[Rfam]
RNA sequence: AAAGCAGGUUGCAAUUACAGUGCUUCCUUUUGUGGACGUGCUGACAUUAUCCUGCUGAAAGAAAAUCUGUGUCAGUCCUGUUUGAUUUUGCCUUCAUGAGGGUAAAGUCGUUACAGAGUGACAUGGACAAUU
Numbered sequence: 001a002a003a004g005c006a007g008g009u010u011g012c013a014a015u016u017a018c019a020g021u022g023c024u025u026c027c028u029u030u031u032g033u034g035g036a037c038g039u040g041c042u043g044a045c046a047u048u049a050u051c052c053u054g055c056u057g058a059a060a061g062a063a064a065a066u067c068u069g070u071g072u073c074a075g076u077c078c079u080g081u082u083u084g085a086u087u088u089u090g091c092c093u094u095c096a097u098g099a100g101g102g103u104a105a106a107g108u109c110g111u112u113a114c115a116g117a118g119u120g121a122c123a124u125g126g127a128c129a130a131u132u
Base pairs, nucleotide, nucleotide: 003056004055005054006053007052008051018043019042020041021040022039023038025036026035067126068125069124070123071122072121073120074119076117077116083110084109085108086107087106088105089104090103091102092101093100094099
Shown here is a 132-nucleotide sequence from Enhydra lutris, a member of the family "Small nucleolar RNA SNORA69".
It is annotated as an H/ACA-box small nucleolar RNA.
The source organism's lineage runs through Eukaryota, Opisthokonta, Theria, Musteloidea and Enhydra lutris.
About the family: U69 is a member of the H/ACA class of small nucleolar RNAs (snoRNAs) which act as guides in the the modification of uridines to pseudouridines.